[Rfam]
RNA sequence: GGCCGGUGUAAUAUCAGCUGGUAAUCCUGAGGUGAUCGGGCGGCUCAGGGUGCCGGUUGGUAUUACACUGGUG
Numbered sequence: 001g002g003c004c005g006g007u008g009u010a011a012u013a014u015c016a017g018c019u020g021g022u023a024a025u026c027c028u029g030a031g032g033u034g035a036u037c038g039g040g041c042g043g044c045u046c047a048g049g050g051u052g053c054c055g056g057u058u059g060g061u062a063u064u065a066c067a068c069u070g071g072u073g
Stems, first nucleotide, its partner, number of pairs: 003071005009065009021054001023051001026049006
Dot-bracket structure: ..(((((.(((((((((...(.(..((((((............)))))).)..)..))))))))).)))))..
A member of the RNA family "mir-216 microRNA precursor family" from Elysia chlorotica, 73 nucleotides long. Gene Ontology terms of the family: RISC complex and miRNA-mediated post-transcriptional gene silencing.